Shown here is an 87-nucleotide sequence from Gossypium hirsutum, a member of the family "MIR7486 microRNA precursor family". Rfam links the family to the GO terms miRNA-mediated post-transcriptional gene silencing and RISC complex. The organism belongs to Gossypium, within Eukaryota. It scores 87 bits against the family's covariance model. The family has 9 seed sequences and 10,132 matches in Rfam 15.1.
[Rfam]
RNA sequence: CACGUCAACGCGAGUUGCUGACGUGGCAGCAAAUCACGUCCUUGAAGGCACGAUUUGUUGCCAUGUCAGCAACUCGCGCUGACGUGG
Numbered sequence: 001c002a003c004g005u006c007a008a009c010g011c012g013a014g015u016u017g018c019u020g021a022c023g024u025g026g027c028a029g030c031a032a033a034u035c036a037c038g039u040c041c042u043u044g045a046a047g048g049c050a051c052g053a054u055u056u057g058u059u060g061c062c063a064u065g066u067c068a069g070c071a072a073c074u075c076g077c078g079c080u081g082a083c084g085u086g087g
Base pairs, nucleotide, nucleotide: 001086002085003084004083005082006081007080009078010077011076012075013074014073015072016071017070018069019068020067021066023064024063025062026061027060028059029058030057031056032055033054034053035052038049040047